Background: The family of this 84-nucleotide sequence from Anaeromyxobacter dehalogenans is "c-di-GMP-I riboswitch aptamer". The family's consensus secondary structure is taken from published work. Lineage of the source: Bacteria > Myxococcia > Myxococcales > Anaeromyxobacter > Anaeromyxobacter dehalogenans. From the family's description: GEMM was predicted in a large-scale screen for bacterial structured RNA regulatory elements. Rfam's curators put it in the seed alignment.

[Rfam]
RNA sequence: CACGCUUCAGGGCAAUUCACCCGUACCCAGGGUGAAGCGCAAAGCCGCGGGUCCGGUGAACGCCGGACGGCCGUGGCCGCCGUG
Numbered sequence: 001c002a003c004g005c006u007u008c009a010g011g012g013c014a015a016u017u018c019a020c021c022c023g024u025a026c027c028c029a030g031g032g033u034g035a036a037g038c039g040c041a042a043a044g045c046c047g048c049g050g051g052u053c054c055g056g057u058g059a060a061c062g063c064c065g066g067a068c069g070g071c072c073g074u075g076g077c078c079g080c081c082g083u084g
Stems, first nucleotide, its partner, number of pairs: 012040002017035006044077003048073003051068007